The record is a 127-nucleotide RNA from Chania multitudinisentens, which matches "RtT RNA" in Rfam.
The literature on the family includes a 1991 paper in Nucleic Acids Res by Bosl and Kersten, "A novel RNA product of the tyrT operon of Escherichia coli".
Rfam 15.1 lists 651 matches to the family in 204 species.

RNA sequence: UUUCUCUGCACAGGGGGAAGGAUGAGAAGCUUCGACAAGGUUCGAGUCGAGCGCAGCGAGACAACGCGCUUUAGCGCGGCCCGCAGGGCGAGGAGCAGCGAGACGAGUUAUCCUUCCCCCACCACCA
Numbered sequence: 001u002u003u004c005u006c007u008g009c010a011c012a013g014g015g016g017g018a019a020g021g022a023u024g025a026g027a028a029g030c031u032u033c034g035a036c037a038a039g040g041u042u043c044g045a046g047u048c049g050a051g052c053g054c055a056g057c058g059a060g061a062c063a064a065c066g067c068g069c070u071u072u073a074g075c076g077c078g079g080c081c082c083g084c085a086g087g088g089c090g091a092g093g094a095g096c097a098g099c100g101a102g103a104c105g106a107g108u109u110a111u112c113c114u115u116c117c118c119c120c121a122c123c124a125c126c127a
Stems, first nucleotide, its partner, number of pairs: 015118007023110001033090002036087001041085001043083002048058002065078005
A search with the family's covariance model found it, with a score of 117 bits.
Rfam's curators write: This family represents a bacterial cis-regulatory element known as RtT RNA. The exact function of RtT is unknown although it is thought that it may be involved in changing the cellular response in relation to amino acid starvation.
The family's RNA type in Rfam is cis-regulatory element.